[Rfam]
RNA sequence: UAUAAAGAUGAGUUCCGAGUCAGUACCUCCCAUGAGGAUAUACUGGCCGAAAGGGUAUGAAGAGUAAUUUUCAUGCCUGCCUUGUGCAAAGGAAGUCUGUAUUCAGACUU
Numbered sequence: 001u002a003u004a005a006a007g008a009u010g011a012g013u014u015c016c017g018a019g020u021c022a023g024u025a026c027c028u029c030c031c032a033u034g035a036g037g038a039u040a041u042a043c044u045g046g047c048c049g050a051a052a053g054g055g056u057a058u059g060a061a062g063a064g065u066a067a068u069u070u071u072c073a074u075g076c077c078u079g080c081c082u083u084g085u086g087c088a089a090a091g092g093a094a095g096u097c098u099g100u101a102u103u104c105a106g107a108c109u110u
Stems, first nucleotide, its partner, number of pairs: 004103001011096001013094004019047007026037004053078011079087002
RNA: Molybdenum/Tungsten riboswitch aptamer (Moco RNA motif)
Organism: Sporomusa malonica